[Rfam]
RNA: DUF3800-IX RNA
RNA sequence: AAGCCAGUUCCGAACUGUCACCGUUACGGUGUGCGUGCCUAGGACAUCUAGGAUAGGAGCUGGCUUCGAC
Numbered sequence: 001a002a003g004c005c006a007g008u009u010c011c012g013a014a015c016u017g018u019c020a021c022c023g024u025u026a027c028g029g030u031g032u033g034c035g036u037g038c039c040u041a042g043g044a045c046a047u048c049u050a051g052g053a054u055a056g057g058a059g060c061u062g063g064c065u066u067c068g069a070c
Base pairs, nucleotide, nucleotide: 001066002065003064004063005062006061007060008059009058010057011056016035017034018033019031020030021029022028038052039051040050041049